[Rfam]
RNA sequence: AUCGUUUAUCCUGAAACGGACGGAAGUAAACCACCAAUGGUUGAAGAAACGCUCU
Numbered sequence: 001a002u003c004g005u006u007u008a009u010c011c012u013g014a015a016a017c018g019g020a021c022g023g024a025a026g027u028a029a030a031c032c033a034c035c036a037a038u039g040g041u042u043g044a045a046g047a048a049a050c051g052c053u054c055u
Stems, first nucleotide, its partner, number of pairs: 003051005009020003023052001029042005
Dot-bracket structure: ..(((((.(((......)))..[.....(((((....)))))....)))))]...

The family of this 55-nucleotide sequence is "Glutamine riboswitch aptamer (glnA leader)". The sequence is in the family's curated seed alignment. On this family, see Ames and Breaker, RNA Biol 2011: "Bacterial aptamers that selectively bind glutamine".